[Rfam]
RNA sequence: AUUAGGAGGAAUCGUUAUGUGCGAAGCACAUAAUUAAAAAUCGGUUCCGACGACCUGCCGCCGAGCGAAAGGGAGGGGGCGAUACAGAUU
Numbered sequence: 001a002u003u004a005g006g007a008g009g010a011a012u013c014g015u016u017a018u019g020u021g022c023g024a025a026g027c028a029c030a031u032a033a034u035u036a037a038a039a040a041u042c043g044g045u046u047c048c049g050a051c052g053a054c055c056u057g058c059c060g061c062c063g064a065g066c067g068a069a070a071g072g073g074a075g076g077g078g079g080c081g082a083u084a085c086a087g088a089u090u
Base pairs, nucleotide, nucleotide: 008048009047010046011045012044013043016032017031018030019029020028021027057080058079059078061076062075066071
RNA: GA-cis RNA